[Rfam]
Annotation
The record is a 187-nucleotide RNA sequence from Prochlorococcus sp. AG-363-N03, which matches "permuted transfer-messenger RNA" in Rfam. On this family, see Williams and Bartel, RNA 1996: "Phylogenetic analysis of tmRNA secondary structure". It is one of the family's seed sequences. The family's RNA type in Rfam is non-coding RNA gene.

RNA sequence: GGUGAUCCACACCAAUGUUUCGGACAGCGGUUCGAUUCCGCUCAGCUCCAUUUUGAAAAAUUCAUGGGGCUGCAAUGGUUUCGACGGGACAUAAGGAGGGUGACUGAAGCCUGCUCGGUAUGAGCAAAACACAAACGCUAACAACAUAGUUAGUUUCUCCCGUCAGACAGCCCCAGUUGCUGCCUGA
Numbered sequence: 001g002g003u004g005a006u007c008c009a010c011a012c013c014a015a016u017g018u019u020u021c022g023g024a025c026a027g028c029g030g031u032u033c034g035a036u037u038c039c040g041c042u043c044a045g046c047u048c049c050a051u052u053u054u055g056a057a058a059a060a061u062u063c064a065u066g067g068g069g070c071u072g073c074a075a076u077g078g079u080u081u082c083g084a085c086g087g088g089a090c091a092u093a094a095g096g097a098g099g100g101u102g103a104c105u106g107a108a109g110c111c112u113g114c115u116c117g118g119u120a121u122g123a124g125c126a127a128a129a130c131a132c133a134a135a136c137g138c139u140a141a142c143a144a145c146a147u148a149g150u151u152a153g154u155u156u157c158u159c160c161c162g163u164c165a166g167a168c169a170g171c172c173c174c175a176g177u178u179g180c181u182g183c184c185u186g187a
Base pairs, nucleotide, nucleotide: 001105002104003103005101016091017090018089020087021086022085026042027041028040029039030038043072044071045070046069047068048067049066